[Rfam]
RNA sequence: ACUGGCUGGUGGCGCACUUCUCCCUGACGGGCGAAGCUGUCAUGCACGGUUAUCACGAUGUGCAGAUACUCAGGCCCGCAUAACGCGGGCUUUUUUUU
Numbered sequence: 001a002c003u004g005g006c007u008g009g010u011g012g013c014g015c016a017c018u019u020c021u022c023c024c025u026g027a028c029g030g031g032c033g034a035a036g037c038u039g040u041c042a043u044g045c046a047c048g049g050u051u052a053u054c055a056c057g058a059u060g061u062g063c064a065g066a067u068a069c070u071c072a073g074g075c076c077c078g079c080a081u082a083a084c085g086c087g088g089g090c091u092u093u094u095u096u097u098u
Base pairs, nucleotide, nucleotide: 009043010042011041012040014037015036018033020031021030022029073091074090075089076088077087078086079085
RNA: Tryptophan operon leader
Organism: Erwinia tasmaniensis